[Rfam]
RNA sequence: GUGGUAACCGGAGAUGGCAUUCCUCCACCUUGUGAAACCGCCACACCGGCUGAUGAUGCCUGUGCCACC
Numbered sequence: 001g002u003g004g005u006a007a008c009c010g011g012a013g014a015u016g017g018c019a020u021u022c023c024u025c026c027a028c029c030u031u032g033u034g035a036a037a038c039c040g041c042c043a044c045a046c047c048g049g050c051u052g053a054u055g056a057u058g059c060c061u062g063u064g065c066c067a068c069c
Stems, first nucleotide, its partner, number of pairs: 010026004016060006040050003
RNA: Fluoride riboswitch aptamer (crcB RNA motif)
Organism: Variovorax sp. Sphag1AA